[Rfam]
RNA sequence: UCGGGCUUCAUUGCAGCCGCCCGACCUCCACAAGACGCUUCGUCCAAGCGCUGC
Numbered sequence: 001u002c003g004g005g006c007u008u009c010a011u012u013g014c015a016g017c018c019g020c021c022c023g024a025c026c027u028c029c030a031c032a033a034g035a036c037g038c039u040u041c042g043u044c045c046a047a048g049c050g051c052u053g054c
Stems, first nucleotide, its partner, number of pairs: 001024006013054005034044004
The family of this 54-nucleotide RNA is "chrB-b RNA".
It is one of the family's seed sequences.
The family's consensus secondary structure is taken from published work.
Rfam classes the family as a cis-regulatory element.